[Rfam]
RNA sequence: AGGAGUAGGCGUAGGCAGUUGCAGAUCAGUCACAAUGGCUGGUUUGAGGAAAGUCCGGGCUCCCGAAAGACCAAACUUGCUGGAUAACGUCCAGUGCGAGCGAUCGCGAGGAUAGUGCCACAGAAAGAUACCGCCAAUACAAGUCAAAAGUAAAAAGUAAAAAGGCAAAAGAAAGAUUUCUUUCUUUUUACUUUUGCCUUUUAUCUUUUGCCUUUUUUGGUAAGGGUGCAAAGGUGCGGUAAGAGCGCACCAGCAGCGUCGAGAGGCGCUGGCUCGGUAAACCCCGGUUGGGUGCAAGGCCAAAGGAACUACGGUUGGUCUUUUACCAGUUCCGCUAACACAGAGCCGCUAGAGGCGUUUGGUGACAGACGUCCCAGAUAGAUAACUGCCCUCGAAAGAGAACAGAACCCGGCUUACCAUCUGCUCUUUCCU
Numbered sequence: 001a002g003g004a005g006u007a008g009g010c011g012u013a014g015g016c017a018g019u020u021g022c023a024g025a026u027c028a029g030u031c032a033c034a035a036u037g038g039c040u041g042g043u044u045u046g047a048g049g050a051a052a053g054u055c056c057g058g059g060c061u062c063c064c065g066a067a068a069g070a071c072c073a074a075a076c077u078u079g080c081u082g083g084a085u086a087a088c089g090u091c092c093a094g095u096g097c098g099a100g101c102g103a104u105c106g107c108g109a110g111g112a113u114a115g116u117g118c119c120a121c122a123g124a125a126a127g128a129u130a131c132c133g134c135c136a137a138u139a140c141a142a143g144u145c146a147a148a149a150g151u152a153a154a155a156a157g158u159a160a161a162a163a164g165g166c167a168a169a170a171g172a173a174a175g176a177u178u179u180c181u182u183u184c185u186u187u188u189u190a191c192u193u194u195u196g197c198c199u200u201u202u203a204u205c206u207u208u209u210g211c212c213u214u215u216u217u218u219g220g221u222a223a224g225g226g227u228g229c230a231a232a233g234g235u236g237c238g239g240u241a242a243g244a245g246c247g248c249a250c251c252a253g254c255a256g257c258g259u260c261g262a263g264a265g266g267c268g269c270u271g272g273c274u275c276g277g278u279a280a281a282c283c284c285c286g287g288u289u290g291g292g293u294g295c296a297a298g299g300c301c302a303a304a305g306g307a308a309c310u311a312c313g314g315u316u317g318g319u320c321u322u323u324u325a326c327c328a329g330u331u332c333c334g335c336u337a338a339c340a341c342a343g344a345g346c347c348g349c350u351a352g353a354g355g356c357g358u359u360u361g362g363u364g365a366c367a368g369a370c371g372u373c374c375c376a377g378a379u380a381g382a383u384a385a386c387u388g389c390c391c392u393c394g395a396a397a398g399a400g401a402a403c404a405g406a407a408c409c410c411g412g413c414u415u416a417c418c419a420u421c422u423g424c425u426c427u428u429u430c431c432u
Base pairs, nucleotide, nucleotide: 001428002427003426004425005424006423007422008421009420011417014390015389016388017387018386019385020384022046023045024044025043026042027041028040029039030038051415052414053413055412056411057410058409059408060294062292063291069322070321074289075288076287078286079285080094081093082092083091084090095109096107097106098105099104110284111283115282116281117278118277119276131225132224133221134220135219136218137217139215141213233251234250235249236248237247238246253273254271255270256269257268258267259266260265298347299346300345305333306332307331308330309329310328313327314326315325317323354373355372356371357370358369359368360367361366
About this RNA
The family of this 432-nucleotide sequence from Calothrix sp. PCC 7507 is "Bacterial RNase P class A". A search with the family's covariance model found it, with a score of 248 bits. Lineage of the source: Bacteria > Bacillati > Nostocales > Calotrichaceae > Calothrix.